[Rfam]
RNA sequence: CAACUCUUGACUCUCUACAAAUCGUACAAAUCUUUCGCCUUUUACUAAAGAUUUCCGUGGAGAGGGUCAAUCCAUGAGUCUAAUUCUAAUUUUUGGAAUGCCUGGCGCAAGUCAGCAU
Numbered sequence: 001c002a003a004c005u006c007u008u009g010a011c012u013c014u015c016u017a018c019a020a021a022u023c024g025u026a027c028a029a030a031u032c033u034u035u036c037g038c039c040u041u042u043u044a045c046u047a048a049a050g051a052u053u054u055c056c057g058u059g060g061a062g063a064g065g066g067u068c069a070a071u072c073c074a075u076g077a078g079u080c081u082a083a084u085u086c087u088a089a090u091u092u093u094u095g096g097a098a099u100g101c102c103u104g105g106c107g108c109a110a111g112u113c114a115g116c117a118u
Stems, first nucleotide, its partner, number of pairs: 003079004009068008018059002028054008097118001099117003104112001

This 118-nucleotide RNA from Bemisia tabaci belongs to the Rfam family "U5 spliceosomal RNA". The family's RNA type in Rfam is spliceosomal small nuclear RNA. Lineage of the source: Eukaryota > Pancrustacea > Allotriocarida > Hexapoda > Bemisia. The base pairs follow the family's consensus structure, which is taken from published work.